[Rfam]
Shown here is a 124-nucleotide RNA from Caldibacillus debilis, a member of the family "Ribosomal protein L20 leader". NCBI's taxonomy places the organism under Bacteria, Bacillati, Caryophanales, Caldibacillus, Caldibacillus debilis. Gene Ontology term of the family: regulation of gene expression. The match comes from Rfam's covariance-model search (62 bits). By type it is a cis-regulatory leader. The family's consensus secondary structure was predicted with CMfinder.
RNA sequence: UGGAAAAAGAAGAGGCACCCGCUUCUCACCUGGAUGACGCGUUUCAGCUGUUAACAGGUUCGCAUGACGUUGGAUGAUUAGGGAUCGAGUGUGUGGGUGUUCGUGCCUGCACUUUUUUUAUGGG
Numbered sequence: 001u002g003g004a005a006a007a008a009g010a011a012g013a014g015g016c017a018c019c020c021g022c023u024u025c026u027c028a029c030c031u032g033g034a035u036g037a038c039g040c041g042u043u044u045c046a047g048c049u050g051u052u053a054a055c056a057g058g059u060u061c062g063c064a065u066g067a068c069g070u071u072g073g074a075u076g077a078u079u080a081g082g083g084a085u086c087g088a089g090u091g092u093g094u095g096g097g098u099g100u101u102c103g104u105g106c107c108u109g110c111a112c113u114u115u116u117u118u119u120a121u122g123g124g
Stems, first nucleotide, its partner, number of pairs: 011026006028059003036052003039048002092111008
Dot-bracket structure: ..........((((((....)))))).(((.....(((((......)).)))....)))................................((((((((....)))))))).............